[Rfam]
RNA sequence: GCCUUCUUCGGAGGCGUUGAAGUCGGAUCCCGUAAUCGGGCGCUUGGGACCGAUGGAGCCAGUAGCGCGACCGGCCGAAAGAU
Numbered sequence: 001g002c003c004u005u006c007u008u009c010g011g012a013g014g015c016g017u018u019g020a021a022g023u024c025g026g027a028u029c030c031c032g033u034a035a036u037c038g039g040g041c042g043c044u045u046g047g048g049a050c051c052g053a054u055g056g057a058g059c060c061a062g063u064a065g066c067g068c069g070a071c072c073g074g075c076c077g078a079a080a081g082a083u
Stems, first nucleotide, its partner, number of pairs: 001083001003081003008078004013060003022054005028049003038072002040068005
RNA: c-di-GMP-II-GAG riboswitch aptamer